Record summary: Rfam assigns this 132-nucleotide sequence from Marmota marmota to the family "Small nucleolar RNA SNORA72". Rfam's curators write: U72 is a member of the H/ACA class of snoRNAs. The snoRNA gene is located in intron 4 of the ribosomal L30 protein gene in human, mouse and chicken. Rfam 15.1 lists 1,541 matches to the family in 547 species. For this family Rfam cites "The family of box ACA small nucleolar RNAs is defined by an evolutionarily conserved secondary structure and ubiquitous sequence elements essential for RNA accumulation" (Ganot et al., Genes Dev, 1997). A search with the family's covariance model found it, with a score of 121 bits. It is annotated as an H/ACA-box small nucleolar RNA. The family's consensus secondary structure was predicted with PFOLD.
[Rfam]
Nucleotides: 132
Stems, first nucleotide, its partner, number of pairs: 005055001016044006023037004067125004072121002082109003086105006
Number, partner (000 for none) and nucleotide at each position: 001000c002000u003000a004000u005055g006000a007000a008000u009000a010000u011000c012000c013000u014000c015000a016044c017043u018042g019041u020040u021039c022000u023037g024036a025035u026034u027000u028000u029000g030000u031000a032000a033000u034026a035025a036024u037023c038000c039021g040020g041019a042018u043017a044016g045000g046000c047000u048000a049000a050000a051000u052000u053000u054000u055005c056000c057000c058000u059000a060000u061000a062000u063000c064000a065000a066000g067125a068124u069123c070122a071000u072121g073120c074000a075000u076000g077000g078000g079000u080000c081000c082109c083108c084107a085000u086105a087104c088103u089102u090101a091100g092000u093000u094000c095000u096000c097000u098000c099000a100091c101090u102089a103088g104087g105086u106000c107084u108083g109082g110000u111000u112000u113000u114000a115000u116000a117000a118000a119000u120073g121072c122070u123069g124068g125067u126000g127000a128000u129000a130000a131000a132000c